[Rfam]
The record is a 172-nucleotide RNA from Affinibrenneria salicis, which matches "Glm Y RNA activator of glmS mRNA" in Rfam. The family's RNA type in Rfam is small RNA. Rfam's curators write: This family consists of a number of bacterial RNA genes of around 167 bases in length. The tke1 RNA gene is present in Escherichia coli, Shigella flexneri, Yersinia pestis and Salmonella species where it is found between the yfhK and purL genes. The function of this RNA is unknown. For this family Rfam cites "Computational identification of noncoding RNAs in E. coli by comparative genomics" (Rivas et al., Curr Biol, 2001).
RNA sequence: CGUUGCUCAUUCAAUUGGUUAUGAUUGCGCUGCCGAAGGGCGGAAUAAUGGCUCAUAACACCCGGAAUGACGCCGCAAGAAAUGGUGCCUAUCGUCCAGCUAUACCGAUAACAGCGACGCGCAAACGUCCUUUAUCAAACAUCGGGCGACACGUUGAGUGAGGCACCGCCUA
Numbered sequence: 001c002g003u004u005g006c007u008c009a010u011u012c013a014a015u016u017g018g019u020u021a022u023g024a025u026u027g028c029g030c031u032g033c034c035g036a037a038g039g040g041c042g043g044a045a046u047a048a049u050g051g052c053u054c055a056u057a058a059c060a061c062c063c064g065g066a067a068u069g070a071c072g073c074c075g076c077a078a079g080a081a082a083u084g085g086u087g088c089c090u091a092u093c094g095u096c097c098a099g100c101u102a103u104a105c106c107g108a109u110a111a112c113a114g115c116g117a118c119g120c121g122c123a124a125a126c127g128u129c130c131u132u133u134a135u136c137a138a139a140c141a142u143c144g145g146g147c148g149a150c151a152c153g154u155u156g157a158g159u160g161a162g163g164c165a166c167c168g169c170c171u172a
Stems, first nucleotide, its partner, number of pairs: 005073002007070006019058006027052002084167007093148005107136005150160003